RNA: MIR6217 microRNA precursor family
RNA sequence: UGGCCAUAGAAUAACUUAUUCUAUGGCCAUUUUGAGUUACGAUAAUUACUAUUCUAAUUUACAAGAUUACAGUAACUCAUUACUAAGUGAUUUACUAUAAUAUUAUGAUAAAUAUCACCGUGAGUAGUAACACGAGUAUCGUAAAUGCAUAUUCAUGUUAUCGUAAAUUGGUAUAAACAUUAUCGUAAAUCAAGGUGGCUAUAUAAUAAGUUAUUUUAUGGUCA
Numbered sequence: 001u002g003g004c005c006a007u008a009g010a011a012u013a014a015c016u017u018a019u020u021c022u023a024u025g026g027c028c029a030u031u032u033u034g035a036g037u038u039a040c041g042a043u044a045a046u047u048a049c050u051a052u053u054c055u056a057a058u059u060u061a062c063a064a065g066a067u068u069a070c071a072g073u074a075a076c077u078c079a080u081u082a083c084u085a086a087g088u089g090a091u092u093u094a095c096u097a098u099a100a101u102a103u104u105a106u107g108a109u110a111a112a113u114a115u116c117a118c119c120g121u122g123a124g125u126a127g128u129a130a131c132a133c134g135a136g137u138a139u140c141g142u143a144a145a146u147g148c149a150u151a152u153u154c155a156u157g158u159u160a161u162c163g164u165a166a167a168u169u170g171g172u173a174u175a176a177a178c179a180u181u182a183u184c185g186u187a188a189a190u191c192a193a194g195g196u197g198g199c200u201a202u203a204u205a206a207u208a209a210g211u212u213a214u215u216u217u218a219u220g221g222u223c224a
Base pairs, nucleotide, nucleotide: 001224002223003222004221005220006219007218008217009216010215011214012213013212014211015210016209017208018207019206020205022203023202024201025200026199027198028197029196030195031194032193033192037188038187039186040185041184042183043182044181045180046179050175051174052173054171055170056169057168058167059166060165061164062163065162066161067160069158070157071156072154074152080144081143082142083141087139088138089137091135092134093129094128095127096126097125098124103122